[Rfam]
RNA: Small nucleolar RNA SNORA63
RNA sequence: UUGCAGGUAAAGUUACAAUAUAGCUGCCACGUGCUGUGUUGUCGUUCCCCCUGCAUAAAGUAACUCGUUUCAUACUAUCCCUGAUUGUCUCUAAAACUAGACAGACAGGGACGCUUGGUCACGAACAU
Numbered sequence: 001u002u003g004c005a006g007g008u009a010a011a012g013u014u015a016c017a018a019u020a021u022a023g024c025u026g027c028c029a030c031g032u033g034c035u036g037u038g039u040u041g042u043c044g045u046u047c048c049c050c051c052u053g054c055a056u057a058a059a060g061u062a063a064c065u066c067g068u069u070u071c072a073u074a075c076u077a078u079c080c081c082u083g084a085u086u087g088u089c090u091c092u093a094a095a096a097c098u099a100g101a102c103a104g105a106c107a108g109g110g111a112c113g114c115u116u117g118g119u120c121a122c123g124a125a126c127a128u
Base pairs, nucleotide, nucleotide: 003054004053005052006051007050015042016041017040018039019038020037021036022035023034024033080109081108082107083106085104086103087102088101